[Rfam]
RNA sequence: AACACCGGUCCGGAGUAGAUGGGUUCUCUAAAUAUAACGUUUCCUUGUGAAACACCCCCUCGUUCUGCAGUUCAUUCUGUGGUAAAGACCCCGCGUUCUUCACCGUUCGCAAUCCUAUAGCCCCAUCAACACCAACUUGACCGUUGC
Numbered sequence: 001a002a003c004a005c006c007g008g009u010c011c012g013g014a015g016u017a018g019a020u021g022g023g024u025u026c027u028c029u030a031a032a033u034a035u036a037a038c039g040u041u042u043c044c045u046u047g048u049g050a051a052a053c054a055c056c057c058c059c060u061c062g063u064u065c066u067g068c069a070g071u072u073c074a075u076u077c078u079g080u081g082g083u084a085a086a087g088a089c090c091c092c093g094c095g096u097u098c099u100u101c102a103c104c105g106u107u108c109g110c111a112a113u114c115c116u117a118u119a120g121c122c123c124c125a126u127c128a129a130c131a132c133c134a135a136c137u138u139g140a141c142c143g144u145u146g147c
Base pairs, nucleotide, nucleotide: 003146004145006143007142008141009140010139012133013132015130016129018127019126020125021124022123023122039053040052041051042050043049058082059081061079093110094109095108098105